[Rfam]
RNA sequence: AAAGAGGAUGUUAAAGUUAACAUUCCUGCCUGAUGCCAUCUUCCUAGAUUGAAUCUGUCAUUUUUGCGCUUGCUGAACGUUUAGACUGUUCUGCUAGCCUUAACAGGCAGGACAUGAGU
Number, nucleotide and partner (000 for none) at each position: 001a031002a000003a000004g000005a027006g025007g024008a023009u022010g021011u020012u000013a000014a000015a000016g000017u000018u000019a000020a011021c010022a009023u008024u007025c006026c000027u005028g000029c000030c000031u001032g000033a000034u000035g000036c000037c000038a000039u000040c000041u000042u000043c000044c000045u000046a000047g000048a000049u000050u000051g000052a000053a000054u000055c000056u112057g000058u110059c000060a000061u000062u000063u000064u000065u000066g000067c000068g098069c097070u096071u000072g094073c093074u000075g091076a000077a089078c088079g087080u000081u000082u000083a000084g000085a000086c000087u079088g078089u077090u000091c075092u000093g073094c072095u000096a070097g069098c068099c000100u000101u000102a000103a000104c000105a000106g000107g000108c000109a000110g058111g000112a056113c000114a000115u000116g000117a000118g000119u000
Shown here is a 119-nucleotide sequence from Setaria viridis, a member of the family "Small nucleolar RNA snoR104". Pairs were carried over by alignment from the consensus structure, which was predicted with WAR. Rfam 15.1 lists 612 matches to the family in 228 species. A search with the family's covariance model found it, with a score of 68 bits. It is annotated as an H/ACA-box small nucleolar RNA.